[Rfam]
RNA sequence: AGCCUUACCUCUUGGUAAAAAAUAAAUUUUCAAAAAGGGAUUGGUAGGUUAAAAUCCGAAGAUCCUGAUAUGAAGUAAAGGCGAUGA
Numbered sequence: 001a002g003c004c005u006u007a008c009c010u011c012u013u014g015g016u017a018a019a020a021a022a023u024a025a026a027u028u029u030u031c032a033a034a035a036a037g038g039g040a041u042u043g044g045u046a047g048g049u050u051a052a053a054a055u056c057c058g059a060a061g062a063u064c065c066u067g068a069u070a071u072g073a074a075g076u077a078a079a080g081g082c083g084a085u086g087a
Base pairs, nucleotide, nucleotide: 006017007016008015009014039064040063041062047057049054
RNA: RT-17 RNA